[Rfam]
RNA sequence: AAUAUGAGACAUGACAAAGGCUGGGAACAGGUAGAGCAUGAAUGGAGCUAACAACAGAAUAUAGUCAUAGGAAGUGAGAAUGAGAGGAAGAAGAACCUGUUGUGGCUACGCUCAUGCACUGCCUCUUCCCUGGCUCUGGCUCUGUCUCUUCCU
Numbered sequence: 001a002a003u004a005u006g007a008g009a010c011a012u013g014a015c016a017a018a019g020g021c022u023g024g025g026a027a028c029a030g031g032u033a034g035a036g037c038a039u040g041a042a043u044g045g046a047g048c049u050a051a052c053a054a055c056a057g058a059a060u061a062u063a064g065u066c067a068u069a070g071g072a073a074g075u076g077a078g079a080a081u082g083a084g085a086g087g088a089a090g091a092a093g094a095a096c097c098u099g100u101u102g103u104g105g106c107u108a109c110g111c112u113c114a115u116g117c118a119c120u121g122c123c124u125c126u127u128c129c130c131u132g133g134c135u136c137u138g139g140c141u142c143u144g145u146c147u148c149u150u151c152c153u
Stems, first nucleotide, its partner, number of pairs: 018135002021132001023130005029124006036117006046107005
This 153-nucleotide RNA from Lupinus angustifolius belongs to the Rfam family "MIR408 microRNA precursor family".
The match comes from Rfam's covariance-model search (91 bits).
The organism belongs to Lupinus, within Eukaryota.